[Rfam]
RNA sequence: UGUUCAUCCAGAGCAGCAGAGGGACUGGCCCUAUGAAGCUGCGGCAACCCCCACUCGGGAAGGUGCCAAUUCCAUCGGAGAUUCCGACAGAUGACAU
Number, nucleotide and partner (000 for none) at each position: 001u000002g000003u000004u094005c093006a092007u091008c090009c000010a000011g000012a000013g042014c041015a040016g039017c038018a000019g000020a000021g031022g030023g029024a000025c000026u074027g073028g072029c023030c022031c021032u000033a000034u000035g000036a000037a000038g017039c016040u015041g014042c013043g067044g066045c065046a064047a000048c063049c062050c059051c058052c057053a000054c000055u000056c000057g052058g051059g050060a000061a000062g049063g048064u046065g045066c044067c043068a000069a000070u000071u089072c028073c027074a026075u000076c086077g085078g084079a083080g000081a000082u000083u079084c078085c077086g076087a000088c000089a071090g008091a007092u006093g005094a004095c000096a000097u000